[Rfam]
RNA sequence: UUCUUAUCCAGAGAGGUGGAGGGACUGGCCCUGUGAAGCCCAGCAACCCAAGAGAAUUUCUUGAAGGUGCUACAUCCAGCAGGUAGGAUCCUGAUAGAUAAGAC
Numbered sequence: 001u002u003c004u005u006a007u008c009c010a011g012a013g014a015g016g017u018g019g020a021g022g023g024a025c026u027g028g029c030c031c032u033g034u035g036a037a038g039c040c041c042a043g044c045a046a047c048c049c050a051a052g053a054g055a056a057u058u059u060c061u062u063g064a065a066g067g068u069g070c071u072a073c074a075u076c077c078a079g080c081a082g083g084u085a086g087g088a089u090c091c092u093g094a095u096a097g098a099u100a101a102g103a104c
Base pairs, nucleotide, nucleotide: 002103003102004101005100006099007098008097013041015040016039017038021031022030023029025079026078027077028076042071043070044069045068047067048066049063050062051061052060075096080093081092082091083090

Shown here is a 104-nucleotide RNA sequence from Gottschalkia acidurici, a member of the family "SAM riboswitch aptamer (S box leader)". NCBI's taxonomy places the organism under Bacteria, Bacillati, Bacillota, Tissierellia, Gottschalkia acidurici.